[Rfam]
RNA sequence: CCUGCCACUGCACCUGACUAGUUCUUGUUGGCUGGUGCAGUCUAGUAGUGAGCUGAAAGUAAGCCCCAGCUUUUAGGAAACAGAGUUGUCCUAUAUGUGGAUGGCUCUGUGCUGAAGGCAUGGGAACAGUC
Numbered sequence: 001c002c003u004g005c006c007a008c009u010g011c012a013c014c015u016g017a018c019u020a021g022u023u024c025u026u027g028u029u030g031g032c033u034g035g036u037g038c039a040g041u042c043u044a045g046u047a048g049u050g051a052g053c054u055g056a057a058a059g060u061a062a063g064c065c066c067c068a069g070c071u072u073u074u075a076g077g078a079a080a081c082a083g084a085g086u087u088g089u090c091c092u093a094u095a096u097g098u099g100g101a102u103g104g105c106u107c108u109g110u111g112c113u114g115a116a117g118g119c120a121u122g123g124g125a126a127c128a129g130u131c
Stems, first nucleotide, its partner, number of pairs: 005048001007046004017036005023030001064124003068121001069119004076113002081109006089101003